Shown here is a 195-nucleotide RNA sequence from Medicago truncatula, a member of the family "MIR2619 microRNA precursor family". Its family is annotated with miRNA-mediated post-transcriptional gene silencing and RISC complex in the Gene Ontology.

RNA sequence: AAACAACCCCCUAUGUUUUGGAUCUUUGACAGUUUUGACCCCAAGACCACUUUUGAGUUAGUCUUCUCUGAUGUGGCACCCACAUCCCUUAGGUGCCACGUGUCGACCAUUGUGGGUGCCACGUUAGCGAAGACUAAGUCAAAAGUGGUCUUGGGGGUCAAAACUGUCAAAGAUCCAAUACAUAGGGGGUUGUUU
Numbered sequence: 001a002a003a004c005a006a007c008c009c010c011c012u013a014u015g016u017u018u019u020g021g022a023u024c025u026u027u028g029a030c031a032g033u034u035u036u037g038a039c040c041c042c043a044a045g046a047c048c049a050c051u052u053u054u055g056a057g058u059u060a061g062u063c064u065u066c067u068c069u070g071a072u073g074u075g076g077c078a079c080c081c082a083c084a085u086c087c088c089u090u091a092g093g094u095g096c097c098a099c100g101u102g103u104c105g106a107c108c109a110u111u112g113u114g115g116g117u118g119c120c121a122c123g124u125u126a127g128c129g130a131a132g133a134c135u136a137a138g139u140c141a142a143a144a145g146u147g148g149u150c151u152u153g154g155g156g157g158u159c160a161a162a163a164c165u166g167u168c169a170a171a172g173a174u175c176c177a178a179u180a181c182a183u184a185g186g187g188g189g190u191u192g193u194u195u
Base pairs, nucleotide, nucleotide: 001195002194004192005191006190007189008188012184013183014182015181016180018178019177020176021175022174023173024172025171026170027169028168029167030166031165032164033163034162035161036160037159038158039157040156041154042153043152044151071124072123074121075120076119077118078117079116080115081114082113083112084111
Notes
It scores 168 bits against the family's covariance model. The source organism's lineage runs through Eukaryota, Embryophyta, Pentapetalae, rosids and Medicago.